[Rfam]
RNA sequence: UGGUCGGGAGCACGCCAUUGGGUCGGCGCGCAGGAAUAGACCUCUAACCCCCUCUUUCGUAAGGGCGCAGUUGCCGGAACCCAACAGCGGCUGUG
Number, nucleotide and partner (000 for none) at each position: 001u000002g042003g041004u040005c039006g000007g000008g000009a000010g031011c030012a000013c028014g027015c026016c025017a000018u000019u000020g000021g000022g000023u000024c000025g016026g015027c014028g013029c000030g011031c010032a000033g000034g000035a000036a000037u000038a000039g005040a004041c003042c002043u000044c000045u000046a000047a000048c000049c000050c000051c000052c000053u000054c000055u000056u000057u000058c000059g000060u000061a000062a000063g000064g000065g000066c095067g094068c093069a092070g091071u000072u089073g088074c087075c000076g085077g000078a000079a000080c000081c000082c000083a000084a000085c076086a000087g074088c073089g072090g000091c070092u069093g068094u067095g066
Overview:
The record is a 95-nucleotide sequence from Aquimixticola soesokkakensis, which matches "Rhodo-rpoB RNA" in Rfam. By type it is a cis-regulatory element. It scores 63 bits against the family's covariance model. The organism belongs to Aquimixticola, within Bacteria.